Rfam assigns this 64-nucleotide RNA from Trifolium medium to the family "MIR5291 microRNA precursor family". Rfam links the family to the GO terms RISC complex and miRNA-mediated post-transcriptional gene silencing. The base pairs follow the family's consensus structure, which was predicted with RNAalifold.
[Rfam]
RNA sequence: GAUGGAUUGAAUCCAGUCCAUUAACAAUUUUAUUCUCUAAUGGAUGGAUUGGAUGGAUUUAAAA
Numbered sequence: 001g002a003u004g005g006a007u008u009g010a011a012u013c014c015a016g017u018c019c020a021u022u023a024a025c026a027a028u029u030u031u032a033u034u035c036u037c038u039a040a041u042g043g044a045u046g047g048a049u050u051g052g053a054u055g056g057a058u059u060u061a062a063a064a
Base pairs, nucleotide, nucleotide: 004060005059006058007057008056011054012053013052014051015050016049017048018047019046020045021044022043026038027036